The record is a 134-nucleotide sequence from Paenibacillus sp. J45TS6, which matches "c-di-AMP riboswitch aptamer (ydaO/yuaA leader)" in Rfam.
Taxonomically the source falls in Paenibacillus (Bacteria, Bacillati, Bacilli, Caryophanales).
The pairing is the family consensus, mapped onto this sequence.
About the family: This family represents a conserved RNA structure found upstream of the ydaO and yuaA genes in Bacillus subtilis and related genes in other bacteria.
A search with the family's covariance model found it, with a score of 81 bits.
RNA sequence: AUAUUAAUAAAGCCGAAUCUACUACUUAGUACGGGGGACGAUUUACAUACUUGGGGUGAAUGGAUGAUGAAGAUCCUAGAGUACCUUCUACUCAAACCCGUCAACUAACCUCGGAGGCUAAUGGAGGAAUAAAU
Number, nucleotide and partner (000 for none) at each position: 001a000002u000003a000004u000005u000006a000007a000008u000009a000010a000011a119012g118013c117014c116015g000016a000017a000018u000019c029020u028021a000022c000023u000024a000025c000026u000027u000028a020029g019030u000031a000032c113033g112034g111035g110036g109037g000038a000039c053040g052041a000042u000043u000044u000045a000046c000047a000048u000049a000050c000051u000052u040053g039054g099055g098056g097057u000058g000059a000060a000061u000062g076063g075064a074065u073066g000067a000068u000069g000070a000071a000072g000073a065074u064075c063076c062077u000078a000079g093080a092081g091082u090083a000084c000085c000086u000087u000088c000089u000090a082091c081092u080093c079094a000095a000096a000097c056098c055099c054100g000101u000102c000103a000104a000105c000106u000107a000108a000109c036110c035111u034112c033113g032114g000115a000116g014117g013118c012119u011120a000121a000122u000123g000124g000125a000126g000127g000128a000129a000130u000131a000132a000133a000134u000